Notes
Shown here is a 96-nucleotide sequence from Ligilactobacillus salivarius, a member of the family "THF (Tetrahydrofolate) riboswitch aptamer". Rfam's curators write: Tetrahydrofolate (THF) riboswitch was first reported for Ames et al. as an RNA motif in 5' untranslated (5'-UTR)regions of folate transport and biosynthesis genes in Firmicutes genomes. NCBI's taxonomy places the organism under Bacteria, Bacilli, Lactobacillales, Lactobacillaceae, Ligilactobacillus salivarius. The literature on the family includes a 2010 paper in Chem Biol by Ames et al., "A eubacterial riboswitch class that senses the coenzyme tetrahydrofolate".
[Rfam]
RNA sequence: GGGGUAGGAAUCCUUGCGUAACGGACUAAUGGAACGGAAUGUGAACAUUAGUAGAUUAAGUCCGAUAUGACUUAGCGUUUGGUUUCCGCAUUCACC
Numbered sequence: 001g002g003g004g005u006a007g008g009a010a011u012c013c014u015u016g017c018g019u020a021a022c023g024g025a026c027u028a029a030u031g032g033a034a035c036g037g038a039a040u041g042u043g044a045a046c047a048u049u050a051g052u053a054g055a056u057u058a059a060g061u062c063c064g065a066u067a068u069g070a071c072u073u074a075g076c077g078u079u080u081g082g083u084u085u086c087c088g089c090a091u092u093c094a095c096c
Base pairs, nucleotide, nucleotide: 001096002095007087008086009085010084012082013081016078019074024052026051027050028049029048030047031046037093038092039091040090041089058073059072060071061070